Small nucleolar RNA SNORA65: a 126-nucleotide RNA sequence from Aquarana catesbeiana. The match comes from Rfam's covariance-model search (85 bits). Lineage of the source: Eukaryota > Craniata > Euteleostomi > Ranidae > Aquarana. Rfam's curators write: U65 belongs to the H/ACA class of snoRNAs which are thought to guide the sites of modification of uridines to pseudouridines. The literature on the family includes a 2001 paper in EMBO J by Huttenhofer et al., "RNomics: an experimental approach that identifies 201 candidates for novel, small, non-messenger RNAs in mouse".

RNA sequence: CCCGCCACUAUGCUGGUCUGCCUGUGACCUAGUGUAUUCCAGUGGUGAGCUGAGAGCAAACCCCAUCUUAGGAAACAGGGUUUUUCCUCAUGUGGCUGAUCCUGUGCCGAUAGACUGGGGAUAAGC
Numbered sequence: 001c002c003c004g005c006c007a008c009u010a011u012g013c014u015g016g017u018c019u020g021c022c023u024g025u026g027a028c029c030u031a032g033u034g035u036a037u038u039c040c041a042g043u044g045g046u047g048a049g050c051u052g053a054g055a056g057c058a059a060a061c062c063c064c065a066u067c068u069u070a071g072g073a074a075a076c077a078g079g080g081u082u083u084u085u086c087c088u089c090a091u092g093u094g095g096c097u098g099a100u101c102c103u104g105u106g107c108c109g110a111u112a113g114a115c116u117g118g119g120g121a122u123a124a125g126c
Base pairs, nucleotide, nucleotide: 005045006044007043008042009041018032019031020029021026061119062118063117065116066114067113068112071108072107076104077103078102079101080100081099085095086094